[Rfam]
Nucleotides: 114
Base pairs, nucleotide, nucleotide: 002113004111008107009106010105011104013102014101015100018097019096020095021094037077038076039075040074049063050062051061
Number, partner (000 for none) and nucleotide at each position: 001000c002113u003000g004111g005000g006000g007000u008107a009106c010105g011104g012000u013102g014101a015100c016000a017000u018097g019096u020095a021094c022000c023000c024000u025000c026000a027000c028000a029000c030000g031000u032000g033000g034000u035000c036000a037077g038076g039075c040074a041000u042000g043000u044000u045000g046000g047000u048000u049063g050062g051061c052000g053000c054000u055000c056000u057000g058000u059000g060000c061051g062050c063049c064000c065000u066000a067000g068000c069000u070000g071000g072000u073000g074040u075039g076038c077037u078000c079000a080000c081000c082000a083000u084000c085000g086000c087000c088000a089000u090000g091000c092000c093000u094021g095020u096019g097018c098000c099000c100015g101014u102013c103000a104011u105010c106009g107008u108000c109000a110000a111004c112000a113002a114000c